Record summary
The record is an 88-nucleotide RNA sequence from Lederbergia citrea, which matches "c-di-GMP-I riboswitch aptamer" in Rfam. The match comes from Rfam's covariance-model search (57 bits). The organism belongs to Lederbergia, within Bacteria.
RNA sequence: UAUAUUAAAGGGCAACUUAUCUGAAAAGAUAAGGACGCAAUGCUAUAGGGUCUAAAGUAUCAUGAUACUAUGCCAGCCAGUUGCAUCU
Numbered sequence: 001u002a003u004a005u006u007a008a009a010g011g012g013c014a015a016c017u018u019a020u021c022u023g024a025a026a027a028g029a030u031a032a033g034g035a036c037g038c039a040a041u042g043c044u045a046u047a048g049g050g051u052c053u054a055a056a057g058u059a060u061c062a063u064g065a066u067a068c069u070a071u072g073c074c075a076g077c078c079a080g081u082u083g084c085a086u087c088u
Stems, first nucleotide, its partner, number of pairs: 012038002017032006042081003048078002050074001052072001057068004